About this RNA: FMN riboswitch aptamer (RFN element): a 124-nucleotide RNA sequence from Georgenia satyanarayanai. Pairs were carried over by alignment from the consensus structure, which is taken from published work.

RNA sequence: AACGUGCUCCGGGGUCGGUGAGAUUCCGAACCGGCGGUGACAGUCCGCGACCCACCUUCCGAGGUGGUUGACCUGGUGGAACUCCAGGACCGACGGUGAAAGUCCGGAUGGGAGGAUGCACGGG
Numbered sequence: 001a002a003c004g005u006g007c008u009c010c011g012g013g014g015u016c017g018g019u020g021a022g023a024u025u026c027c028g029a030a031c032c033g034g035c036g037g038u039g040a041c042a043g044u045c046c047g048c049g050a051c052c053c054a055c056c057u058u059c060c061g062a063g064g065u066g067g068u069u070g071a072c073c074u075g076g077u078g079g080a081a082c083u084c085c086a087g088g089a090c091c092g093a094c095g096g097u098g099a100a101a102g103u104c105c106g107g108a109u110g111g112g113a114g115g116a117u118g119c120a121c122g123g124g
Stems, first nucleotide, its partner, number of pairs: 003122005008116003016028003030103002032092002034048004043090002052067002072088005094106003